[Rfam]
RNA sequence: UCCACCGCGAGGUGGAAUCCAAAGGAAGCUGGAGGCAAACUUCCGGCCCAAGGAACACGAACAUCAUCAGGCAUAGGAUACGGGAUGAGUCUGCUAAACAAGACGAAGUCCAAUUAACUACACGGACGUACCAAUGUAAAUGAUGUGGGUAUAUGGAAGGAAAGUGAAUCGU
Numbered sequence: 001u002c003c004a005c006c007g008c009g010a011g012g013u014g015g016a017a018u019c020c021a022a023a024g025g026a027a028g029c030u031g032g033a034g035g036c037a038a039a040c041u042u043c044c045g046g047c048c049c050a051a052g053g054a055a056c057a058c059g060a061a062c063a064u065c066a067u068c069a070g071g072c073a074u075a076g077g078a079u080a081c082g083g084g085a086u087g088a089g090u091c092u093g094c095u096a097a098a099c100a101a102g103a104c105g106a107a108g109u110c111c112a113a114u115u116a117a118c119u120a121c122a123c124g125g126a127c128g129u130a131c132c133a134a135u136g137u138a139a140a141u142g143a144u145g146u147g148g149g150u151a152u153a154u155g156g157a158a159g160g161a162a163a164g165u166g167a168a169u170c171g172u
Stems, first nucleotide, its partner, number of pairs: 001016006028172002031169001035165002040159006046150005062145005071137003076132002079130004083111004089104004
RNA: Group II catalytic intron D1-D4-3
Organism: Paenibacillus sp. oral taxon 786